[Rfam]
RNA sequence: AACAGAGUAGGAAGUCAUGCGUUAAGUACCAAAGGAUGGGAAGUUGUCUUUGGGCGAAAAGAAAAUGUCUGUUGUUGUACGCACUAUAGUGUGCGGACAGGAACUUAGUUCUUGCGGUAUGGCUUUCGCAUCCACUGUC
Numbered sequence: 001a002a003c004a005g006a007g008u009a010g011g012a013a014g015u016c017a018u019g020c021g022u023u024a025a026g027u028a029c030c031a032a033a034g035g036a037u038g039g040g041a042a043g044u045u046g047u048c049u050u051u052g053g054g055c056g057a058a059a060a061g062a063a064a065a066u067g068u069c070u071g072u073u074g075u076u077g078u079a080c081g082c083a084c085u086a087u088a089g090u091g092u093g094c095g096g097a098c099a100g101g102a103a104c105u106u107a108g109u110u111c112u113u114g115c116g117g118u119a120u121g122g123c124u125u126u127c128g129c130a131u132c133c134a135c136u137g138u139c
Stems, first nucleotide, its partner, number of pairs: 002138004010127010020116003026055002029053007039133003043129001059113004